A member of the RNA family "FMN riboswitch aptamer (RFN element)" from Xaviernesmea oryzae, 220 nucleotides long. The RFN element is a highly conserved domain that is found frequently in the 5'-untranslated regions of prokaryotic mRNAs that encode for flavin mononucleotide (FMN) biosynthesis and transport proteins. The source organism's lineage runs through Bacteria, Pseudomonadati, Pseudomonadota, Hyphomicrobiales and Xaviernesmea. The family's consensus secondary structure is taken from published work.
RNA sequence: GCCUGUUCUCAGGGCGGGGUGCAAUUCCCCACCGGCGGUAUCGGGCCUGCGGCGUCUUUCUUCGAAGUCCAUUCGAAAGGACACGGCAGCACAAUUCUCUUCGCAUUGAGAUGCAGGAGGAUGCCCGGAGCCCGCGAGCGCCUCCGGCCUUUGCCGGAGGGUCAGCAGAUCCGGUGAGAGGCCGGAGCCGACGGUAUAGUCCGGAUGGAAGAGAGCAAUG
Numbered sequence: 001g002c003c004u005g006u007u008c009u010c011a012g013g014g015c016g017g018g019g020u021g022c023a024a025u026u027c028c029c030c031a032c033c034g035g036c037g038g039u040a041u042c043g044g045g046c047c048u049g050c051g052g053c054g055u056c057u058u059u060c061u062u063c064g065a066a067g068u069c070c071a072u073u074c075g076a077a078a079g080g081a082c083a084c085g086g087c088a089g090c091a092c093a094a095u096u097c098u099c100u101u102c103g104c105a106u107u108g109a110g111a112u113g114c115a116g117g118a119g120g121a122u123g124c125c126c127g128g129a130g131c132c133c134g135c136g137a138g139c140g141c142c143u144c145c146g147g148c149c150u151u152u153g154c155c156g157g158a159g160g161g162u163c164a165g166c167a168g169a170u171c172c173g174g175u176g177a178g179a180g181g182c183c184g185g186a187g188c189c190g191a192c193g194g195u196a197u198a199g200u201c202c203g204g205a206u207g208g209a210a211g212a213g214a215g216c217a218a219u220g
Stems, first nucleotide, its partner, number of pairs: 004217007017029003031200002033190002035135004138166002170186005192203003